[Rfam]
RNA sequence: CGGUCUUAAUGAGGACCUUCGCCGAAACGAAACUAUUUCGGGGCGGAGAUCUGAGAAUCUGACCG
Dot-bracket structure: (((((........((.(((((((.....(((.....)))..))))))).)).........)))))
Annotation:
A member of the RNA family "Selenocysteine insertion sequence 1" from Branchiostoma belcheri, 65 nucleotides long. Its family is annotated with selenocysteine incorporation in the Gene Ontology. Taxonomically the source falls in Branchiostoma (Eukaryota, Opisthokonta, Chordata, Amphioxiformes).